[Rfam]
RNA sequence: GCUGCGAAUGCAGGUGGAACUACAGACUCUUAAUCUCGUGGUCGCGGGUUCGAGUCCCGCCGGUCCCAAGUCAGGGGGACCGUAGCUCAGUGGUAGAGCACGACGUUUCACCCCUCCUUGUCGCAGCAAG
Dot-bracket structure: .((((((.....(((((((.................(((....(((((..[....)))))((((((..........))))))..((((....]..)))))))...)))))))........))))))....